The family of this 306-nucleotide sequence from Triticum urartu is "Plant signal recognition particle RNA". A search with the family's covariance model found it, with a score of 248 bits. Rfam classes the family as a non-coding RNA gene. Lineage of the source: Eukaryota > Euphyllophyta > Mesangiospermae > Poaceae > Triticum. The family's consensus secondary structure is taken from published work.
RNA sequence: GCCGAGCUCAGUCACGGGAGCUUGUCACCCAUGUGGGGGCAUUGAGGUGGUGUGGAUGUUUGGUGCGGUUUCUUGGCCUGGGCUUGUGAUGUAACUUUGCUGGCCUGCCCGUUCCAAGUUGGUAGUGGGCUGGGUGGCUGGGGCGAAAGCUUCGGCCUCUCAGGCCCUGAAGUGGCAGGCACCACGUUAGGCUGGUUUCACAGAGCAGCGUUCACUGCCCGCUUCCAACGGUGGAAGGAUAACAGGCCGCUGCAGCAUGGGCCCACUAUUGGCCUAGGACCCCUCCAUAAACAGACCACCAUCUUU
Numbered sequence: 001g002c003c004g005a006g007c008u009c010a011g012u013c014a015c016g017g018g019a020g021c022u023u024g025u026c027a028c029c030c031a032u033g034u035g036g037g038g039g040c041a042u043u044g045a046g047g048u049g050g051u052g053u054g055g056a057u058g059u060u061u062g063g064u065g066c067g068g069u070u071u072c073u074u075g076g077c078c079u080g081g082g083c084u085u086g087u088g089a090u091g092u093a094a095c096u097u098u099g100c101u102g103g104c105c106u107g108c109c110c111g112u113u114c115c116a117a118g119u120u121g122g123u124a125g126u127g128g129g130c131u132g133g134g135u136g137g138c139u140g141g142g143g144c145g146a147a148a149g150c151u152u153c154g155g156c157c158u159c160u161c162a163g164g165c166c167c168u169g170a171a172g173u174g175g176c177a178g179g180c181a182c183c184a185c186g187u188u189a190g191g192c193u194g195g196u197u198u199c200a201c202a203g204a205g206c207a208g209c210g211u212u213c214a215c216u217g218c219c220c221g222c223u224u225c226c227a228a229c230g231g232u233g234g235a236a237g238g239a240u241a242a243c244a245g246g247c248c249g250c251u252g253c254a255g256c257a258u259g260g261g262c263c264c265a266c267u268a269u270u271g272g273c274c275u276a277g278g279a280c281c282c283c284u285c286c287a288u289a290a291a292c293a294g295a296c297c298a299c300c301a302u303c304u305u306u
Stems, first nucleotide, its partner, number of pairs: 001040003004023006028037003044305009054296001057293002060290003063285001065283001067281002070279004075274004080264008090254002094251001101249007109238002112236005118229005124223003127166002130163005136157009167172001174219005184211004192203003